[Rfam]
A member of the RNA family "Small nucleolar RNA SNORA77" from Molossus molossus, 125 nucleotides long. On this family, see Schattner et al., RNA 2006: "A computational screen for mammalian pseudouridylation guide H/ACA RNAs". The match comes from Rfam's covariance-model search (70 bits). ACA63 (SNORA77) is a member of the H/ACA class of snoRNAs that guide the sites of modification of uridines to pseudouridines.
RNA sequence: CCAAACUCACUCAGUGCCCAGUUGCAGUCCCAGGCUGGUGUUUUUUCUGUCUAGCACAGUAACAUUCGGGAUGCUAUGACUGCCUUGAUCUGUCAAGGGCAAUGCAGGUGCUCAGGUAUACAGGG
Numbered sequence: 001c002c003a004a005a006c007u008c009a010c011u012c013a014g015u016g017c018c019c020a021g022u023u024g025c026a027g028u029c030c031c032a033g034g035c036u037g038g039u040g041u042u043u044u045u046u047c048u049g050u051c052u053a054g055c056a057c058a059g060u061a062a063c064a065u066u067c068g069g070g071a072u073g074c075u076a077u078g079a080c081u082g083c084c085u086u087g088a089u090c091u092g093u094c095a096a097g098g099g100c101a102a103u104g105c106a107g108g109u110g111c112u113c114a115g116g117u118a119u120a121c122a123g124g125g
Stems, first nucleotide, its partner, number of pairs: 001054001003052001005050002014041005022033003066116002069113002072110001074107002077104002081101005
NCBI's taxonomy places the organism under Eukaryota, Teleostomi, Euteleostomi, Sarcopterygii, Molossus.